RNA sequence: UGGCAACGGUGAUGACAGGAGUUGUGGCUGUAUGUAGCGGUGGCUACUGCAUGGAGACACCAGUCCCUCUAAACUGACGUUGCCU
Dot-bracket structure: .((((((.......................................................................)))))).